The family of this 94-nucleotide sequence from Paenibacillus sabuli is "ylbH leader".
The base pairs follow the family's consensus structure.
Rfam links the family to the GO term regulation of gene expression.
A search with the family's covariance model found it, with a score of 73 bits.
This family is a putative regulatory RNA structure that is found upstream of the ylbH gene in B. subtilis and related low GC Gram-positive bacteria.
Taxonomically the source falls in Paenibacillus (Bacteria, Bacillota, Caryophanales, Paenibacillaceae).
RNA sequence: AAAAAAAUCGACCCUUGCCUUUCGGCAAGGGUCUUUCAUGGGAGAGGAGAAACCGGACGAAGAGCUUAUGGGGAAACGUAAGCCUUCUCCGCGG
Numbered sequence: 001a002a003a004a005a006a007a008u009c010g011a012c013c014c015u016u017g018c019c020u021u022u023c024g025g026c027a028a029g030g031g032u033c034u035u036u037c038a039u040g041g042g043a044g045a046g047g048a049g050a051a052a053c054c055g056g057a058c059g060a061a062g063a064g065c066u067u068a069u070g071g072g073g074a075a076a077c078g079u080a081a082g083c084c085u086u087c088u089c090c091g092c093g094g
Base pairs, nucleotide, nucleotide: 011032012031013030014029015028016027017026018025019024033042034041035040054091055090056089057088059087060086061085062084064083065082066081067080068079